[Rfam]
Small nucleolar RNA SNORA25: a 119-nucleotide RNA from Fukomys damarensis. It is annotated as an H/ACA-box small nucleolar RNA. ACA25 is a member of the H/ACA class of snoRNA that guide the sites of modification of uridines to pseudouridines. Taxonomically the source falls in Fukomys (Eukaryota, Opisthokonta, Mammalia, Rodentia).
RNA sequence: AGGUCAUUUCAAAGAAGGCUUAUGUGGCUAUGAAAUCAGAAUCUUUUAAUGCUGUGAACAAGGUUUAAUUUCUCCAUAAUAGUCACUCAAUGGUGCUGUUUUCCUGAGGAGAUACAAGA
Numbered sequence: 001a002g003g004u005c006a007u008u009u010c011a012a013a014g015a016a017g018g019c020u021u022a023u024g025u026g027g028c029u030a031u032g033a034a035a036u037c038a039g040a041a042u043c044u045u046u047u048a049a050u051g052c053u054g055u056g057a058a059c060a061a062g063g064u065u066u067a068a069u070u071u072c073u074c075c076a077u078a079a080u081a082g083u084c085a086c087u088c089a090a091u092g093g094u095g096c097u098g099u100u101u102u103c104c105u106g107a108g109g110a111g112a113u114a115c116a117a118g119a
Base pairs, nucleotide, nucleotide: 002059004057005056006055007054014047015046016045017044018043020041021040023039026037027036071112072111073110074109075108078105079099080098081097082096084095085094086093087092